[Rfam]
RNA sequence: CCUGGAGGGGGAGAGGUUAUAGCUCUUACAUUGCGACUGAUCUGUAAGCGUAUAGCUUUUCCCCUUCCAUG
Numbered sequence: 001c002c003u004g005g006a007g008g009g010g011g012a013g014a015g016g017u018u019a020u021a022g023c024u025c026u027u028a029c030a031u032u033g034c035g036a037c038u039g040a041u042c043u044g045u046a047a048g049c050g051u052a053u054a055g056c057u058u059u060u061c062c063c064c065u066u067c068c069a070u071g
Stems, first nucleotide, its partner, number of pairs: 003069005009063003013059002017055005025048006

mir-965 microRNA precursor family: a 71-nucleotide RNA from Frankliniella occidentalis. Pairs were carried over by alignment from the consensus structure, which was predicted with RNAalifold. Rfam links the family to the GO terms miRNA-mediated post-transcriptional gene silencing and RISC complex. Rfam 15.1 lists 224 matches to the family in 178 species. A reference for the family is Huang et al. (2012), "The regulation of silkworm fibroin L chain production by miRNA-965 and miRNA-1926 in insect cells", Bioorg Khim. It scores 57 bits against the family's covariance model.